[Rfam]
RNA: Transposase-1 RNA
RNA sequence: ACCGAGUUUGUCACUGUCAUUACCCUCACGUUAGGAUAUGGGAAUACUGGUGUUGA
Numbered sequence: 001a002c003c004g005a006g007u008u009u010g011u012c013a014c015u016g017u018c019a020u021u022a023c024c025c026u027c028a029c030g031u032u033a034g035g036a037u038a039u040g041g042g043a044a045u046a047c048u049g050g051u052g053u054u055g056a
Stems, first nucleotide, its partner, number of pairs: 006051003010047002017041004024035003